The record is a 97-nucleotide RNA sequence from Rhynchospora breviuscula, which matches "Small nucleolar RNA Z161/Z228" in Rfam. For this family Rfam cites "The high diversity of snoRNAs in plants: identification and comparative study of 120 snoRNA genes from Oryza sativa" (Chen et al., Nucleic Acids Res, 2003). The match comes from Rfam's covariance-model search (54 bits). The family has 11 seed sequences and 630 matches in Rfam 15.1. The family's RNA type in Rfam is C/D-box small nucleolar RNA.

RNA sequence: GGGGCAAGUGAUGAAUAAACACCUUAAUUACUCACGAUGGUCAUCUGAAGGCACAUUUGUUGUGUCUAACUGAUGCAUAAACUAUACUCUGAUGCCC
Dot-bracket structure: (((................................................(((.......)))..............................)))

About this RNA
Its family is annotated with RNA processing and nucleolus in the Gene Ontology.